[Rfam]
RNA sequence: AGAUAAUCCCAGGCAACUGGGGAAAGGUUGAAUCCGGCUGGUGGGUCCAACCCCUCUAAGUCCGUUCCGCAAGGAGCGGAGACCGGAGGCACAAUUCACCGGUUCCUCUGGCGGCGUUCGCGCGCCGUCAGUAACGCGAAAAGGAACUGAGCGGCCAGGAACGCGAAAUGGUUCCGCGCCGAGUCAAGUAUUCCAGGCAGGUUUCGGGCCUGGAGGAAUCGCAGUUACCCGGAGGGUAACGGUUGCUACUGUGGAUCAGCACGGAAAGAGCGGCCCGCCCGGCCUCCAACCAGGCCGAAAGACGCCGAAAGGCGGGACAAAGCGGGUGCUCCCACCGGGAAGAACAGCAGGCCCAGGCAUGGUCUGCGACGGCUUCCAAAACGCCGGCGACGCUACAAACGGCGGCGCGGGCUUGUGAGCGAAAAGCAACCCCAGAGUUAAGAGGUCAGACCCGUGGCACCGGGCCAACGCACCGCCAAAAGCGGUGGCCGACCCGGAGCAAAACGGUGGAGAUGCGGAACCGUGGUCACAAACGUGUCUUCACCCGGUUCGCAAGCCGGCGUCCGCAAACGCCAGCCCAAGCGAGCCAAGAGGCCUCACUCGAUGAUUCAGCGCCGCAAGUCGCUGAACGGCCCUGCUAUGAGGCCGGCAACUCCGCUGGCCGCGGAGAAUGGCGUCGGGAAGCUGGCAGCCCCGCCAGGGCGCGCCUAAUGUCAGCGUGGGAAAGAGAGAGUGGCGAACUCC
Numbered sequence: 001a002g003a004u005a006a007u008c009c010c011a012g013g014c015a016a017c018u019g020g021g022g023a024a025a026g027g028u029u030g031a032a033u034c035c036g037g038c039u040g041g042u043g044g045g046u047c048c049a050a051c052c053c054c055u056c057u058a059a060g061u062c063c064g065u066u067c068c069g070c071a072a073g074g075a076g077c078g079g080a081g082a083c084c085g086g087a088g089g090c091a092c093a094a095u096u097c098a099c100c101g102g103u104u105c106c107u108c109u110g111g112c113g114g115c116g117u118u119c120g121c122g123c124g125c126c127g128u129c130a131g132u133a134a135c136g137c138g139a140a141a142a143g144g145a146a147c148u149g150a151g152c153g154g155c156c157a158g159g160a161a162c163g164c165g166a167a168a169u170g171g172u173u174c175c176g177c178g179c180c181g182a183g184u185c186a187a188g189u190a191u192u193c194c195a196g197g198c199a200g201g202u203u204u205c206g207g208g209c210c211u212g213g214a215g216g217a218a219u220c221g222c223a224g225u226u227a228c229c230c231g232g233a234g235g236g237u238a239a240c241g242g243u244u245g246c247u248a249c250u251g252u253g254g255a256u257c258a259g260c261a262c263g264g265a266a267a268g269a270g271c272g273g274c275c276c277g278c279c280c281g282g283c284c285u286c287c288a289a290c291c292a293g294g295c296c297g298a299a300a301g302a303c304g305c306c307g308a309a310a311g312g313c314g315g316g317a318c319a320a321a322g323c324g325g326g327u328g329c330u331c332c333c334a335c336c337g338g339g340a341a342g343a344a345c346a347g348c349a350g351g352c353c354c355a356g357g358c359a360u361g362g363u364c365u366g367c368g369a370c371g372g373c374u375u376c377c378a379a380a381a382c383g384c385c386g387g388c389g390a391c392g393c394u395a396c397a398a399a400c401g402g403c404g405g406c407g408c409g410g411g412c413u414u415g416u417g418a419g420c421g422a423a424a425a426g427c428a429a430c431c432c433c434a435g436a437g438u439u440a441a442g443a444g445g446u447c448a449g450a451c452c453c454g455u456g457g458c459a460c461c462g463g464g465c466c467a468a469c470g471c472a473c474c475g476c477c478a479a480a481a482g483c484g485g486u487g488g489c490c491g492a493c494c495c496g497g498a499g500c501a502a503a504a505c506g507g508u509g510g511a512g513a514u515g516c517g518g519a520a521c522c523g524u525g526g527u528c529a530c531a532a533a534c535g536u537g538u539c540u541u542c543a544c545c546c547g548g549u550u551c552g553c554a555a556g557c558c559g560g561c562g563u564c565c566g567c568a569a570a571c572g573c574c575a576g577c578c579c580a581a582g583c584g585a586g587c588c589a590a591g592a593g594g595c596c597u598c599a600c601u602c603g604a605u606g607a608u609u610c611a612g613c614g615c616c617g618c619a620a621g622u623c624g625c626u627g628a629a630c631g632g633c634c635c636u637g638c639u640a641u642g643a644g645g646c647c648g649g650c651a652a653c654u655c656c657g658c659u660g661g662c663c664g665c666g667g668a669g670a671a672u673g674g675c676g677u678c679g680g681g682a683a684g685c686u687g688g689c690a691g692c693c694c695c696g697c698c699a700g701g702g703c704g705c706g707c708c709u710a711a712u713g714u715c716a717g718c719g720u721g722g723g724a725a726a727g728a729g730a731g732a733g734u735g736g737c738g739a740a741c742u743c744c
Base pairs, nucleotide, nucleotide: 008021009020010019011018012017026052027051028050029049030048032046033045034044035043036042061080062079063078064077065076066075100149101148102147103146104145105144106143107142112127113126114125115124116123118139119138120137121136122135152181153180154179155178158175159174160173161172162171164206165205166204167203168202169201189217191215192214193213194212195211196210197209198208220253221252222251223250224249226238227237228236229235241431242430243429244428245427246426281296282295283294284293285292303314304313305312306311338377339376340375341374342373347367348366349365350364351363352362391404392403393402394401435602436601437600442598443597444596445595458499460497461496462495463494464493471487472486473485474484475483476482508543509542510541511540512539513538514537515536516535517534548587549586550585551584552583553582556579559574560573561572562571563570608629609628610627611626612625613624614623616621630648631647632646633645634644637675638674639673640672653669654668655667656666657665658664684718685717686716687715688714689713690712691705692704694701695700729743730742731741

Annotation
This 744-nucleotide RNA belongs to the Rfam family "MISL RNA". It is one of the family's seed sequences. Rfam classes the family as a small RNA.